[Rfam]
RNA sequence: UAGGUCCCCAUCAUGUCUUUUGCUCUGCAGUCAGUCAGUGUUGAUUUGUGAAUGUGUAGCAAAAGGCAGAAUGGGGACCCA
Numbered sequence: 001u002a003g004g005u006c007c008c009c010a011u012c013a014u015g016u017c018u019u020u021u022g023c024u025c026u027g028c029a030g031u032c033a034g035u036c037a038g039u040g041u042u043g044a045u046u047u048g049u050g051a052a053u054g055u056g057u058a059g060c061a062a063a064a065g066g067c068a069g070a071a072u073g074g075g076g077a078c079c080c081a
Stems, first nucleotide, its partner, number of pairs: 003079003008074004014068011026056004031051003035048001037046002

The record is an 81-nucleotide RNA sequence from Dipodomys ordii, which matches "mir-511 microRNA precursor family" in Rfam. Gene Ontology terms of the family: miRNA-mediated post-transcriptional gene silencing and RISC complex. Its Rfam clan is "mir-506 microRNA precursor clan". On this family, see Bentwich et al., Nat Genet 2005: "Identification of hundreds of conserved and nonconserved human microRNAs".